[Rfam]
RNA sequence: UUAUCCGCGAGGAUUGGUUUGAAGGAAGCCGCUAGCAAAUUUGCGAGCUGAUGAACAAGAACAUCAUAUGAGGCGUAGGCUAGAGGUGAGUUGGCAGGGCCUCCCCCACGAAGUAAGGGGACAAGACGACGAAACCACGUGAUCUAAUGGCCACCGUAAAUGAUGUAGCAGUGCAAAGAAAGUUCAUGUU
Numbered sequence: 001u002u003a004u005c006c007g008c009g010a011g012g013a014u015u016g017g018u019u020u021g022a023a024g025g026a027a028g029c030c031g032c033u034a035g036c037a038a039a040u041u042u043g044c045g046a047g048c049u050g051a052u053g054a055a056c057a058a059g060a061a062c063a064u065c066a067u068a069u070g071a072g073g074c075g076u077a078g079g080c081u082a083g084a085g086g087u088g089a090g091u092u093g094g095c096a097g098g099g100c101c102u103c104c105c106c107c108a109c110g111a112a113g114u115a116a117g118g119g120g121a122c123a124a125g126a127c128g129a130c131g132a133a134a135c136c137a138c139g140u141g142a143u144c145u146a147a148u149g150g151c152c153a154c155c156g157u158a159a160a161u162g163a164u165g166u167a168g169c170a171g172u173g174c175a176a177a178g179a180a181a182g183u184u185c186a187u188g189u190u
Base pairs, nucleotide, nucleotide: 001016003014004013005012006011028190030188031187035183036182040177041176042175043174044173045172047169048168049167050166062165063164064163065162066161067160073157074156075155078152079151080150081149086114087113090109091108093106
RNA: Group II catalytic intron D1-D4-3
Organism: Shewanella baltica